[Rfam]
Rfam assigns this 76-nucleotide sequence from Geotrypetes seraphini to the family "mir-252 microRNA precursor family".
RNA sequence: UCCCAUAUAGAAGCGCAAGUGGCGCAGGUUAACUGCUUUGAAAGUUAACCUGCACCACUUGCGCUUCUAUAUGGGA
Numbered sequence: 001u002c003c004c005a006u007a008u009a010g011a012a013g014c015g016c017a018a019g020u021g022g023c024g025c026a027g028g029u030u031a032a033c034u035g036c037u038u039u040g041a042a043a044g045u046u047a048a049c050c051u052g053c054a055c056c057a058c059u060u061g062c063g064c065u066u067c068u069a070u071a072u073g074g075g076a
Base pairs, nucleotide, nucleotide: 001076002075003074004073005072006071007070010067011066012065013064014063015062016061017060018059019058024053025052026051027050028049029048030047
The match comes from Rfam's covariance-model search (47 bits). Pairs were carried over by alignment from the consensus structure, which was predicted with RNAalifold. Gene Ontology terms of the family: miRNA-mediated post-transcriptional gene silencing and RISC complex.